[Rfam]
RNA sequence: UCACAAUUUCAAGGCCAUAGCAGAAGCACUCAAGGUGCCUGUCAGAUUCCAAUGAAUAUCUGCAAAUUCUGCU
Numbered sequence: 001u002c003a004c005a006a007u008u009u010c011a012a013g014g015c016c017a018u019a020g021c022a023g024a025a026g027c028a029c030u031c032a033a034g035g036u037g038c039c040u041g042u043c044a045g046a047u048u049c050c051a052a053u054g055a056a057u058a059u060c061u062g063c064a065a066a067u068u069c070u071g072c073u
Stems, first nucleotide, its partner, number of pairs: 013039001019073007026038003043062005048055002

The record is a 73-nucleotide RNA sequence from Alligator sinensis, which matches "Mammalian CPEB3 ribozyme" in Rfam. It scores 37 bits against the family's covariance model.